[Rfam]
RNA: tRNA
Nucleotides: 073
Base pairs, nucleotide, nucleotide: 001072002071003070004069005068006067007066010025011024012023013022027043028042029041030040031039049065050064051063052062053061
Number, partner (000 for none) and nucleotide at each position: 001072g002071c003070c004069u005068c006067u007066a008000u009000a010025g011024c012023u013022c014000a015000g016000u017000u018000g019000g020000u021000a022013g023012a024011g025010c026000a027043a028042c029041u030040g031039a032000c033000u034000c035000u036000u037000a038000a039031u040030c041029a042028g043027u044000a045000g046000g047000u048000c049065c050064a051063a052062g053061g054000u055000u056000c057000g058000a059000g060000c061053c062052c063051u064050u065049g066007u067006g068005g069004a070003g071002g072001c073000a